[Rfam]
RNA sequence: CUGCGCGACUGACCGCGAACGUGAAACGGCUGCGGAGAAUCGGCCGAUUUUCCGCAGUGGUUUC
Numbered sequence: 001c002u003g004c005g006c007g008a009c010u011g012a013c014c015g016c017g018a019a020c021g022u023g024a025a026a027c028g029g030c031u032g033c034g035g036a037g038a039a040u041c042g043g044c045c046g047a048u049u050u051u052c053c054g055c056a057g058u059g060g061u062u063u064c
Stems, first nucleotide, its partner, number of pairs: 023064005029058007036050001040046001